Rfam assigns this 89-nucleotide sequence from Eudromia elegans to the family "Small nucleolar RNA SNORD70". Taxonomically the source falls in Eudromia (Eukaryota, Eumetazoa, Bilateria, Sauria). snoRNA HBII-234 belongs to the C/D family of snoRNAs. It is the human orthologue of the mouse MBII-234 and is predicted to guide 2'O-ribose methylation of the small 18S rRNA on position A512. For this family Rfam cites "RNomics: an experimental approach that identifies 201 candidates for novel, small, non-messenger RNAs in mouse" (Huttenhofer et al., EMBO J, 2001). By type it is a C/D-box small nucleolar RNA. Its family is annotated with nucleolus and RNA processing in the Gene Ontology.
RNA sequence: AGCUCUGUUGUCAGUGAUGGAUUCUUCCUGGAGCUGAGUAUAAAUUAUUUCAGCCAACAUUUUGUUGCUACCACUGAGACAGCAGCCUG
Numbered sequence: 001a002g003c004u005c006u007g008u009u010g011u012c013a014g015u016g017a018u019g020g021a022u023u024c025u026u027c028c029u030g031g032a033g034c035u036g037a038g039u040a041u042a043a044a045u046u047a048u049u050u051c052a053g054c055c056a057a058c059a060u061u062u063u064g065u066u067g068c069u070a071c072c073a074c075u076g077a078g079a080c081a082g083c084a085g086c087c088u089g
Base pairs, nucleotide, nucleotide: 002088005085006084007083008082009081010080011079012078